Rfam assigns this 138-nucleotide sequence from Triticum aestivum to the family "Small nucleolar RNA snoR2/U65". The family is grouped with related families in Rfam's "SNORA65 clan". The family has 11 seed sequences and 908 matches in Rfam 15.1. The organism belongs to Triticum, within Eukaryota. Rfam links the family to the GO terms RNA processing and nucleolus. On this family, see Shaw et al., J Cell Sci 1998: "Localization and processing from a polycistronic precursor of novel snoRNAs in maize".
RNA sequence: GGCCCUGAUGCCACGUCUCUGGUUGCCACAAGCCUUCAACGGAGAUGCUACAUUGUGCUGAUAGAGAUUUUCACAUUCGAUAAGAACCCGUGGUUGUGAUUCAGGCGGUACACAGGGCUGUUUUGUGUGAUUACAUUU
Numbered sequence: 001g002g003c004c005c006u007g008a009u010g011c012c013a014c015g016u017c018u019c020u021g022g023u024u025g026c027c028a029c030a031a032g033c034c035u036u037c038a039a040c041g042g043a044g045a046u047g048c049u050a051c052a053u054u055g056u057g058c059u060g061a062u063a064g065a066g067a068u069u070u071u072c073a074c075a076u077u078c079g080a081u082a083a084g085a086a087c088c089c090g091u092g093g094u095u096g097u098g099a100u101u102c103a104g105g106c107g108g109u110a111c112a113c114a115g116g117g118c119u120g121u122u123u124u125g126u127g128u129g130a131u132u133a134c135a136u137u138u
Stems, first nucleotide, its partner, number of pairs: 002058002005055001007054004014047006021040001023038001025033002071130005083119002088115001090113001092111001093109003